[Rfam]
RNA: skipping-rope RNA
RNA sequence: GAGGAUAGAGGUUGAAAAGCAUCCGCCUCCAACGCGCCACUUAGUUAGUGGGUCGAGAAAUGCGGGCGACAUUCGGCGGUCCCGCCUAUCCUU
Numbered sequence: 001g002a003g004g005a006u007a008g009a010g011g012u013u014g015a016a017a018a019g020c021a022u023c024c025g026c027c028u029c030c031a032a033c034g035c036g037c038c039a040c041u042u043a044g045u046u047a048g049u050g051g052g053u054c055g056a057g058a059a060a061u062g063c064g065g066g067c068g069a070c071a072u073u074c075g076g077c078g079g080u081c082c083c084g085c086c087u088a089u090c091c092u093u
Stems, first nucleotide, its partner, number of pairs: 001093008011033004023079005035057001037051004062085005